[Rfam]
Background: A member of the RNA family "Small Cajal body specific RNA 3" from Coturnix japonica, 142 nucleotides long. On this family, see Darzacq et al., EMBO J 2002: "Cajal body-specific small nuclear RNAs: a novel class of 2'-O-methylation and pseudouridylation guide RNAs". Its family is annotated with Cajal body, RNA processing and nucleolus in the Gene Ontology. The family is grouped with related families in Rfam's "SCARNA3 clan". The source organism's lineage runs through Eukaryota, Opisthokonta, Craniata, Sauropsida and Coturnix. The family's consensus secondary structure was predicted with RNAalifold.
RNA sequence: ACUGGAGGCUGUUGGGACCAAUUGGGACCAGUCGUGGCAAAACAAGUGUUUUGUCUACUCUUGCAGCCUUCCUAGAGUAAAGUGGAGGUCUCUGUCUGCUUUAGGAGAGCCAACUAAACUGGAUCGUUCCCCUCCAUACAUG
Numbered sequence: 001a002c003u004g005g006a007g008g009c010u011g012u013u014g015g016g017a018c019c020a021a022u023u024g025g026g027a028c029c030a031g032u033c034g035u036g037g038c039a040a041a042a043c044a045a046g047u048g049u050u051u052u053g054u055c056u057a058c059u060c061u062u063g064c065a066g067c068c069u070u071c072c073u074a075g076a077g078u079a080a081a082g083u084g085g086a087g088g089u090c091u092c093u094g095u096c097u098g099c100u101u102u103a104g105g106a107g108a109g110c111c112a113a114c115u116a117a118a119c120u121g122g123a124u125c126g127u128u129c130c131c132c133u134c135c136a137u138a139c140a141u142g
Stems, first nucleotide, its partner, number of pairs: 004072003008067005026056001029053001037050001084135005092126001094124003098120001100118005

Rfam 15.1 lists 642 matches to the family in 535 species. It is annotated as a small Cajal body RNA.